[Rfam]
RNA: Small nucleolar RNA SNORA58
Organism: Trichechus manatus
RNA sequence: GGGCAUACUUGUAGACCUUGCUUGACUCUGCUCAUGGCCAAGUAGGGGGGACAGUGUAUGCAAGAGUCAUUUGGAGUUUAUGCUAGCUGUACCCAGCUUAAUCAGUGGCUGGAUAAAUUGCAGUACUCCAACAUUU
Numbered sequence: 001g002g003g004c005a006u007a008c009u010u011g012u013a014g015a016c017c018u019u020g021c022u023u024g025a026c027u028c029u030g031c032u033c034a035u036g037g038c039c040a041a042g043u044a045g046g047g048g049g050g051a052c053a054g055u056g057u058a059u060g061c062a063a064g065a066g067u068c069a070u071u072u073g074g075a076g077u078u079u080a081u082g083c084u085a086g087c088u089g090u091a092c093c094c095a096g097c098u099u100a101a102u103c104a105g106u107g108g109c110u111g112g113a114u115a116a117a118u119u120g121c122a123g124u125a126c127u128c129c130a131a132c133a134u135u136u
Base pairs, nucleotide, nucleotide: 003061004060005059006058007057008056016047017046018045019044020043021042022041023040024039073129074128075127076126078125081122082121083120093112094111095110096109097108